[Rfam]
Mason-Pfizer monkey virus packaging signal: a 266-nucleotide RNA sequence from Molossus molossus.

RNA sequence: UGGCGCCAGACGUGGGGCUCCAGCACAGGGGAUACAGUGAAGGAAGCCGUUCGAGUGGCCGGCAGAAAGGAAAAGAAAAGAGGGAAUGACGUGGGAACCUGCUGUGUCUGUACCCCUCGGUAAGUGAACGGCGAUUAUGGGUCAAGCAAUGAGCCAAGAUAAGAUGUUCGUUGAAGGACUAGGAAAGGCUAUCAAGGCAAGAGGAGUAAAUGUAAAAAUUAAGCAUUUGUGUCAGUAUUUUGAUUAUAUUAAGGAAGUUUGCCCUU
Dot-bracket structure: .....((....(((.........)))...)).......(.......)................................(((((....((((((.......)))))..)...)).)))......(((.(..((....)).))))......(.(((...............................)))..)........((((.((..(.((...........)).)......)).)))).........((((........))))
Rfam classes the family as a cis-regulatory element. From the family's description: This family represents a group of sequences that are related to the Mason-Pfizer monkey virus (MPMV) packaging signal. The packaging signal is located in the 5' UTR and is required for specific RNA encapsidation.